The record is a 95-nucleotide RNA from Subdoligranulum variabile, which matches "NiCo (Nickel/Cobalt) riboswitch aptamer" in Rfam. Rfam's curators put it in the seed alignment. The literature on the family includes a 2015 paper in Mol Cell by Furukawa et al., "Bacterial riboswitches cooperatively bind Ni(2+) or Co(2+) ions and control expression of heavy metal transporters". Taxonomically the source falls in Subdoligranulum variabile (Bacteria, Bacillati, Eubacteriales, Subdoligranulum).
RNA sequence: CCAGUACAAACUGAGCAGGCGACGCCCUUUGCAGGGCGUGGGGCCGGGCCGCCCGUGCGGCAGCAGAUGAAGGUAACGGCAUCUGUGGGACAGUU
Numbered sequence: 001c002c003a004g005u006a007c008a009a010a011c012u013g014a015g016c017a018g019g020c021g022a023c024g025c026c027c028u029u030u031g032c033a034g035g036g037c038g039u040g041g042g043g044c045c046g047g048g049c050c051g052c053c054c055g056u057g058c059g060g061c062a063g064c065a066g067a068u069g070a071a072g073g074u075a076a077c078g079g080c081a082u083c084u085g086u087g088g089g090a091c092a093g094u095u
Stems, first nucleotide, its partner, number of pairs: 010094004016089001018045003022039006048061005063086006